[Rfam]
RNA sequence: AAGCAGUGAGGAUAAAAUGCGCUUGAUGUGAAGGACUGGGUUCAAUCACAACCGUCUGAUUCCAUUAGACGAUGAUAAAUCAGCGCAUCUGAGCUU
Dot-bracket structure: ((((........................................................................................))))
The family of this 96-nucleotide RNA sequence from Musa acuminata is "small nucleolar RNA snoR114". The organism belongs to Musa acuminata, within Eukaryota. Gene Ontology terms of the family: RNA processing and nucleolus. The base pairs follow the family's consensus structure, which was predicted with RNAalifold.